The record is a 77-nucleotide sequence from Cronobacter turicensis, which matches "ABC transporter regulator" in Rfam.
The family's RNA type in Rfam is cis-regulatory element.
NCBI's taxonomy places the organism under Bacteria, Gammaproteobacteria, Enterobacteriaceae, Cronobacter, Cronobacter turicensis.
RNA sequence: AUUACCCAUCGUGAUGUGGUUAUUACAAUCAUAAGUUUAUGAUUGAAGGGGCAAUAAUUUAUUGCCCUUUUUUAUUU
Numbered sequence: 001a002u003u004a005c006c007c008a009u010c011g012u013g014a015u016g017u018g019g020u021u022a023u024u025a026c027a028a029u030c031a032u033a034a035g036u037u038u039a040u041g042a043u044u045g046a047a048g049g050g051g052c053a054a055u056a057a058u059u060u061a062u063u064g065c066c067c068u069u070u071u072u073u074a075u076u077u
Stems, first nucleotide, its partner, number of pairs: 026045007047069010